Rfam assigns this 99-nucleotide sequence from Ureibacillus sinduriensis to the family "SAM riboswitch aptamer (S box leader)". Taxonomically the source falls in Ureibacillus sinduriensis (Bacteria, Bacillota, Bacilli, Caryophanaceae). The family's consensus secondary structure is taken from published work.

[Rfam]
RNA sequence: CUCUUAUCAAGAGAAGCAGAGGGACUGGCCCGAUGAAGCUUCAGCAACCAACGGAAUGUAAGGUGCUAAAUCCAGCUGGCGUAAGCCGAAAGAUGAGAA
Numbered sequence: 001c002u003c004u005u006a007u008c009a010a011g012a013g014a015a016g017c018a019g020a021g022g023g024a025c026u027g028g029c030c031c032g033a034u035g036a037a038g039c040u041u042c043a044g045c046a047a048c049c050a051a052c053g054g055a056a057u058g059u060a061a062g063g064u065g066c067u068a069a070a071u072c073c074a075g076c077u078g079g080c081g082u083a084a085g086c087c088g089a090a091a092g093a094u095g096a097g098a099a
Base pairs, nucleotide, nucleotide: 002098003097004096005095006094007093008092013042014041015040016039017038021031022030023029025075026074027073028072043067044066045065046064048063049062051059052058053057071091076088078087079086080085